Rfam assigns this 91-nucleotide RNA from Papaver nudicaule to the family "Small nucleolar RNA snoR109". The family's consensus secondary structure was predicted with WAR. Rfam 15.1 lists 680 matches to the family in 220 species. The family's RNA type in Rfam is H/ACA-box small nucleolar RNA. NCBI's taxonomy places the organism under Eukaryota, Viridiplantae, Streptophytina, Spermatophyta, Papaver.
Nucleotides: 091
Stems, first nucleotide, its partner, number of pairs: 029084007040072003044068003048063004
Number, partner (000 for none) and nucleotide at each position: 001000c002000g003000g004000c005000u006000g007000u008000a009000g010000c011000u012000a013000a014000a015000g016000u017000a018000a019000u020000c021000c022000a023000a024000a025000a026000a027000c028000a029084a030083g031082a032081a033080g034079u035078u036000u037000a038000c039000u040072g041071g042070c043000c044068g045067g046066u047000u048063g049062u050061u051060g052000c053000u054000u055000u056000u057000a058000g059000u060051c061050g062049a063048c064000a065000c066046a067045u068044c069000u070042g071041c072040u073000u074000a075000c076000c077000g078035a079034a080033c081032u082031u083030c084029u085000a086000a087000c088000a089000u090000u091000u